[Rfam]
RNA sequence: UGGCUGGGAUGACAACAACAUACAUUUCUCGAUGCUGACACUUGAUUUAUUCAAGGACCAAAACAUUGAUGAGCUUUGUGCGUGUCUGAGCCAU
Numbered sequence: 001u002g003g004c005u006g007g008g009a010u011g012a013c014a015a016c017a018a019c020a021u022a023c024a025u026u027u028c029u030c031g032a033u034g035c036u037g038a039c040a041c042u043u044g045a046u047u048u049a050u051u052c053a054a055g056g057a058c059c060a061a062a063a064c065a066u067u068g069a070u071g072a073g074c075u076u077u078g079u080g081c082g083u084g085u086c087u088g089a090g091c092c093a094u
Base pairs, nucleotide, nucleotide: 001093002092003091004090
Shown here is a 94-nucleotide RNA sequence from Eragrostis curvula, a member of the family "small nucleolar RNA snoR126". Pairs were carried over by alignment from the consensus structure, which was predicted with RNAalifold. Lineage of the source: Eukaryota > Streptophyta > Streptophytina > Magnoliopsida > Eragrostis.